Record summary: The record is an 87-nucleotide RNA sequence from Leersia perrieri, which matches "Small nucleolar RNA Z163/Z177 family" in Rfam. Its family is annotated with RNA processing and nucleolus in the Gene Ontology. The match comes from Rfam's covariance-model search (74 bits).

RNA sequence: UGGCCGGUGAGGAAACAUGAGUUGUACAGAUACUCUAGUGAGUAAAAUGAAGUACACUGAUACACACACAUUGCGUUUCUGAGGUCA
Numbered sequence: 001u002g003g004c005c006g007g008u009g010a011g012g013a014a015a016c017a018u019g020a021g022u023u024g025u026a027c028a029g030a031u032a033c034u035c036u037a038g039u040g041a042g043u044a045a046a047a048u049g050a051a052g053u054a055c056a057c058u059g060a061u062a063c064a065c066a067c068a069c070a071u072u073g074c075g076u077u078u079c080u081g082a083g084g085u086c087a
Stems, first nucleotide, its partner, number of pairs: 001087005